The record is a 63-nucleotide RNA from Jacana jacana, which matches "mir-737 microRNA precursor family" in Rfam. Rfam 15.1 lists 233 matches to the family in 207 species.

RNA sequence: UUAUUUUUUUAGGUUUUGAUUUUUAUUAUGUCUUCAUACAAAAAGCAAAACCUAAAGAAAAUG
Numbered sequence: 001u002u003a004u005u006u007u008u009u010u011a012g013g014u015u016u017u018g019a020u021u022u023u024u025a026u027u028a029u030g031u032c033u034u035c036a037u038a039c040a041a042a043a044a045g046c047a048a049a050a051c052c053u054a055a056a057g058a059a060a061a062u063g
Base pairs, nucleotide, nucleotide: 004060005059006058007057008056009055010054011053012052013051014050015049016048017047018046020044021043022042023041024040